The family of this 177-nucleotide RNA sequence from Ardeotis kori is "U2 spliceosomal RNA". The family is grouped with related families in Rfam's "U2 clan". The family's consensus secondary structure is taken from published work. Rfam's curators write: U2 is a small nuclear RNA (snRNA) component of the spliceosome (involved in pre-mRNA splicing). Rfam classes the family as a spliceosomal small nuclear RNA. A search with the family's covariance model found it, with a score of 70 bits.

RNA sequence: UUUUCUUCUUGGCCUUUUGGCUAAGAUUGUCAUGUCUGUUCUUGUCUGUUUAGUAUCAGAUAGGUCUUUGCUGUGAGGACUUGCUAUUAAAUAGGUCUGUGGAGCUGGGCUAUGGCCUGUGGGCUUGCUCUGUCUUCUCCCUGUAAUGAAACCCUUCAGUGACCCAUCAUAGAUUGC
Numbered sequence: 001u002u003u004u005c006u007u008c009u010u011g012g013c014c015u016u017u018u019g020g021c022u023a024a025g026a027u028u029g030u031c032a033u034g035u036c037u038g039u040u041c042u043u044g045u046c047u048g049u050u051u052a053g054u055a056u057c058a059g060a061u062a063g064g065u066c067u068u069u070g071c072u073g074u075g076a077g078g079a080c081u082u083g084c085u086a087u088u089a090a091a092u093a094g095g096u097c098u099g100u101g102g103a104g105c106u107g108g109g110c111u112a113u114g115g116c117c118u119g120u121g122g123g124c125u126u127g128c129u130c131u132g133u134c135u136u137c138u139c140c141c142u143g144u145a146a147u148g149a150a151a152c153c154c155u156u157c158a159g160u161g162a163c164c165c166a167u168c169a170u171a172g173a174u175u176g177c
Base pairs, nucleotide, nucleotide: 007026008025009024011022012021013020014019043062044061045060046059047058048057064080065079066078067077068076069075070074108140109139112136114134115133121130122129123128143177144176145175146174147173